[Rfam]
RNA: Small nucleolar RNA SNORA17
RNA sequence: UCUCCCCCAAAAGGCAUUGCAGGUGUGGCUGCUGUGUUACAAGUGCUUCUCUAGGUGGUAGAGAGGUGAGGGGUUAUGUCUGUGCUCAGUGUUCUGACCGAUGGGCAUCUGAAUGAUUCAUAGUCUAACAUU
Numbered sequence: 001u002c003u004c005c006c007c008c009a010a011a012a013g014g015c016a017u018u019g020c021a022g023g024u025g026u027g028g029c030u031g032c033u034g035u036g037u038u039a040c041a042a043g044u045g046c047u048u049c050u051c052u053a054g055g056u057g058g059u060a061g062a063g064a065g066g067u068g069a070g071g072g073g074u075u076a077u078g079u080c081u082g083u084g085c086u087c088a089g090u091g092u093u094c095u096g097a098c099c100g101a102u103g104g105g106c107a108u109c110u111g112a113a114u115g116a117u118u119c120a121u122a123g124u125c126u127a128a129c130a131u132u
Base pairs, nucleotide, nucleotide: 002061003060005058006057007055008054010052013049014048019046020045021044024041025040026039027038028037029036068129071126072125073124074123075122076121077120083115084114086112087111088110089109090107091106092105093104094103